[Rfam]
RNA sequence: UUUGCAAGUUUGAGGCUACAGCAGAAGUGCUCAUGGUGUGGCCCUACCAGAUGCCAACAAAUCUGUGAAUUCUGCU
Numbered sequence: 001u002u003u004g005c006a007a008g009u010u011u012g013a014g015g016c017u018a019c020a021g022c023a024g025a026a027g028u029g030c031u032c033a034u035g036g037u038g039u040g041g042c043c044c045u046a047c048c049a050g051a052u053g054c055c056a057a058c059a060a061a062u063c064u065g066u067g068a069a070u071u072c073u074g075c076u
Base pairs, nucleotide, nucleotide: 012044014043015042016041017040020076021075022074023073024072025071026070027039028038029037048065049064050063051062052061